The record is a 60-nucleotide RNA sequence, which matches "msiK RNA" in Rfam. The match comes from Rfam's covariance-model search (57 bits). Rfam 15.1 lists 1,374 matches to the family in 1,364 species.
RNA sequence: CCAGACCACUCCCUUACAACGGAUCGUCCGGCACGUUCCUGCCGGUGGAGGAGAAGAAUC
Number, nucleotide and partner (000 for none) at each position: 001c000002c000003a000004g000005a000006c000007c000008a000009c000010u052011c051012c050013c000014u048015u047016a046017c000018a000019a000020c000021g000022g000023a000024u000025c000026g000027u000028c045029c044030g043031g042032c041033a040034c000035g000036u000037u000038c000039c000040u033041g032042c031043c030044g029045g028046u016047g015048g014049a000050g012051g011052a010053g000054a000055a000056g000057a000058a000059u000060c000